[Rfam]
RNA sequence: CGGAGUCGCGCGGGAGAGGGUGGGUUUCGAGCCUGCCGCCGAAGGAGCAACCGCCCCGGAAUCUCUCAGGCAAAUGGACCGCGCGAGGCCG
Numbered sequence: 001c002g003g004a005g006u007c008g009c010g011c012g013g014g015a016g017a018g019g020g021u022g023g024g025u026u027u028c029g030a031g032c033c034u035g036c037c038g039c040c041g042a043a044g045g046a047g048c049a050a051c052c053g054c055c056c057c058g059g060a061a062u063c064u065c066u067c068a069g070g071c072a073a074a075u076g077g078a079c080c081g082c083g084c085g086a087g088g089c090c091g
Stems, first nucleotide, its partner, number of pairs: 006086008020036004038071003041067002045065003051059002
The record is a 91-nucleotide RNA from Sphingomonas gilva, which matches "Glycine riboswitch aptamer" in Rfam.
Rfam's curators write: This family represents the bacterial glycine riboswitch.
The organism belongs to Sphingomonas, within Bacteria.
The pairing is the family consensus, mapped onto this sequence.